[Rfam]
RNA sequence: AAGAAGUGUGAUGUACACAGGGUCCAGUUGCAUAAAGCCCCGAAAUUUCGGGGUUUUUUGUUAUCAGUCAACAGAGAUACUGGGCGUUAUGCCCUUUUUUU
Numbered sequence: 001a002a003g004a005a006g007u008g009u010g011a012u013g014u015a016c017a018c019a020g021g022g023u024c025c026a027g028u029u030g031c032a033u034a035a036a037g038c039c040c041c042g043a044a045a046u047u048u049c050g051g052g053g054u055u056u057u058u059u060g061u062u063a064u065c066a067g068u069c070a071a072c073a074g075a076g077a078u079a080c081u082g083g084g085c086g087u088u089a090u091g092c093c094c095u096u097u098u099u100u101u
Stems, first nucleotide, its partner, number of pairs: 034057009082094004

Shown here is a 101-nucleotide RNA sequence from Morganella morganii, a member of the family "Gammaprotebacteria rimP leader". A search with the family's covariance model found it, with a score of 90 bits. NCBI's taxonomy places the organism under Bacteria, Pseudomonadati, Pseudomonadota, Morganella morganii, Morganella morganii subsp. morganii. Its family is annotated with regulation of gene expression in the Gene Ontology.